Rfam assigns this 126-nucleotide RNA sequence to the family "DUF3800-I RNA".
The family's RNA type in Rfam is small RNA.
Rfam describes the family as follows. Actinobacteria, Firmicutes, Fusobacteria, Proteobacteria (1 example), Tenericutes (2 examples).
It is one of the family's seed sequences.
RNA sequence: UUUUAUUACCGGAGAGAAAUCUUGUCAGGUCGAUAGCUAGAUGACGAUUAGCAAUAAUUAAGCGUGCUAUAUGUACGCCGCUCUAGUUGGGAGAAAACCACAAUGGUGGUUUUUUUUCUUAUGGAA
Number, nucleotide and partner (000 for none) at each position: 001u000002u000003u000004u000005a000006u000007u000008a030009c029010c028011g025012g023013a022014g021015a000016g000017a000018a000019a000020u000021c014022u013023u012024g000025u011026c000027a000028g010029g009030u008031c000032g000033a000034u089035a088036g087037c086038u085039a084040g000041a000042u000043g082044a000045c080046g079047a058048u057049u056050a000051g000052c000053a000054a000055u000056a049057a048058u047059u000060a000061a000062g078063c077064g076065u075066g074067c073068u000069a000070u000071a000072u000073g067074u066075a065076c064077g063078c062079c046080g045081c000082u043083c000084u039085a038086g037087u036088u035089g034090g000091g116092a115093g114094a113095a112096a111097a110098c109099c108100a107101c000102a000103a000104u000105g000106g000107u100108g099109g098110u097111u096112u095113u094114u093115u092116u091117u000118c000119u000120u000121a000122u000123g000124g000125a000126a000